A member of the RNA family "S16-Flavobacteria ribosomal protein leader", 35 nucleotides long. It is annotated as a cis-regulatory leader. The literature on the family includes a 2020 paper in BMC Microbiol by Eckert and Weinberg, "Discovery of 20 novel ribosomal leader candidates in bacteria and archaea".

RNA sequence: AUUAAUAACGGGAGUCGGGAACUCCAAAAUUUAAU
Numbered sequence: 001a002u003u004a005a006u007a008a009c010g011g012g013a014g015u016c017g018g019g020a021a022c023u024c025c026a027a028a029a030u031u032u033a034a035u
Stems, first nucleotide, its partner, number of pairs: 001035005011025005